[Rfam]
RNA sequence: UUGGCUUAAACUAUUGUGGAUCUACACUUUGAAAAUUGAAUCCACAGAAAGGGAUGGAAAAUACAUUAAUUUCAUCCAA
Number, nucleotide and partner (000 for none) at each position: 001u079002u078003g077004g076005c000006u074007u000008a072009a071010a070011c000012u068013a067014u000015u065016g064017u063018g062019g000020a000021u000022c057023u056024a055025c053026a000027c051028u050029u049030u048031g000032a000033a000034a000035a000036u000037u000038g000039a000040a000041u000042c000043c000044a000045c000046a000047g000048a030049a029050a028051g027052g000053g025054a000055u024056g023057g022058a000059a000060a000061a000062u018063a017064c016065a015066u000067u013068a012069a000070u010071u009072u008073c000074a006075u000076c004077c003078a002079a001